[Rfam]
RNA sequence: UUCUCUGAUGAUAAUAUAAAAAUUACUUUCGUUCUUCUGAAGUUGCAAUGUGGAAGAACAAUUUGGAGACCUGAACUGAGGAGAU
Numbered sequence: 001u002u003c004u005c006u007g008a009u010g011a012u013a014a015u016a017u018a019a020a021a022a023u024u025a026c027u028u029u030c031g032u033u034c035u036u037c038u039g040a041a042g043u044u045g046c047a048a049u050g051u052g053g054a055a056g057a058a059c060a061a062u063u064u065g066g067a068g069a070c071c072u073g074a075a076c077u078g079a080g081g082a083g084a085u
Base pairs, nucleotide, nucleotide: 003083004082005081006080
RNA: Small nucleolar RNA Z159/U59
Organism: Panicum miliaceum